Rfam assigns this 168-nucleotide sequence from Homo sapiens to the family "Hovlinc ribozyme (hominin vlincRNA-located)". For this family Rfam cites "Hovlinc is a recently evolved class of ribozyme found in human lncRNA" (Chen et al., Nat Chem Biol, 2021). Lineage of the source: Eukaryota > Eumetazoa > Deuterostomia > Euarchontoglires > Homo. Hovlinc is a recently evolved class of self-cleaving ribozyme found in a very long non coding RNA (vlincRNA) in hominins, including humans (genus Homo), and chimpanzees and bonobos (genus Pan), but missing in gorillas (genus Gorilla).

RNA sequence: ACCUAGACUAAGCCCAGGAACAUAAGACCUCAGAGCUAAUGAGCCACAUACCUACCCAAGGUGAAAGCUCCUUCUCUCGCAAUGUGUAACUCAUGAUUCUCAUGACCCCUGGUUGGAGAGAUCCGGACUAGGAGCCAGGGGGCCUCUGAUUCUGCCAGCCACUGCUAA
Number, nucleotide and partner (000 for none) at each position: 001a000002c000003c000004u000005a000006g000007a000008c000009u000010a000011a166012g165013c164014c000015c000016a000017g160018g159019a000020a000021c000022a000023u000024a000025a153026g152027a151028c000029c000030u149031c148032a147033g146034a145035g144036c000037u000038a000039a000040u000041g000042a000043g000044c000045c086046a085047c084048a083049u082050a000051c132052c131053u130054a129055c000056c000057c000058a000059a072060g071061g070062u000063g000064a000065a000066a000067g000068c000069u000070c061071c060072u059073u121074c120075u119076c118077u117078c116079g000080c000081a000082a049083u048084g047085u046086g045087u000088a000089a000090c000091u105092c104093a103094u102095g101096a100097u000098u000099c000100u096101c095102a094103u093104g092105a091106c141107c140108c139109c138110u137111g136112g135113u134114u133115g000116g078117a077118g076119a075120g074121a073122u000123c000124c000125g000126g000127a000128c000129u054130a053131g052132g051133a114134g113135c112136c111137a110138g109139g108140g107141g106142g000143c000144c035145u034146c033147u032148g031149a030150u000151u027152c026153u025154g000155c000156c000157a000158g000159c018160c017161a000162c000163u000164g013165c012166u011167a000168a000